Shown here is an 88-nucleotide RNA sequence from Radiobacillus deserti, a member of the family "c-di-GMP-I riboswitch aptamer". The source organism's lineage runs through Bacteria, Bacillati, Bacillota, Caryophanales and Radiobacillus.
RNA sequence: CAACGUUAAAGGCAAACUAUUUGAAAGAAUAGGACGCAAAGCCAAGGAUCUAAGGUGAAUGUUUCACUAGGACCGCCUGGCUACCAAA
Numbered sequence: 001c002a003a004c005g006u007u008a009a010a011g012g013c014a015a016a017c018u019a020u021u022u023g024a025a026a027g028a029a030u031a032g033g034a035c036g037c038a039a040a041g042c043c044a045a046g047g048a049u050c051u052a053a054g055g056u057g058a059a060u061g062u063u064u065c066a067c068u069a070g071g072a073c074c075g076c077c078u079g080g081c082u083a084c085c086a087a088a
Stems, first nucleotide, its partner, number of pairs: 012037002017032006040082004045078003049072002055067004